[Rfam]
RNA sequence: ACAUCUGUUUCGUAGCGAUUGCAGGUUGCUUCAACAGGUAGAGUAGAAAGUAAAUUCGUUAGGGUUAAAAAGGCUGAAGGUUUAAACUUCAGCCUUUUUU
Numbered sequence: 001a002c003a004u005c006u007g008u009u010u011c012g013u014a015g016c017g018a019u020u021g022c023a024g025g026u027u028g029c030u031u032c033a034a035c036a037g038g039u040a041g042a043g044u045a046g047a048a049a050g051u052a053a054a055u056u057c058g059u060u061a062g063g064g065u066u067a068a069a070a071a072g073g074c075u076g077a078a079g080g081u082u083u084a085a086a087c088u089u090c091a092g093c094c095u096u097u098u099u100u
Stems, first nucleotide, its partner, number of pairs: 003039006014030006054065004067099013
The family of this 100-nucleotide sequence from Parahaemophilus parainfluenzae is "Haemophilus regulatory RNA responsive to iron". Rfam links the family to the GO terms positive regulation of translation, ncRNA-mediated and response to iron ion. From the family's description: Involved in iron homeostasis in Haemophilus species. Orthologues exist only among other Pasteurellacae. The literature on the family includes a 2014 paper in PLoS One by Santana et al., "HrrF is the Fur-regulated small RNA in nontypeable Haemophilus influenzae".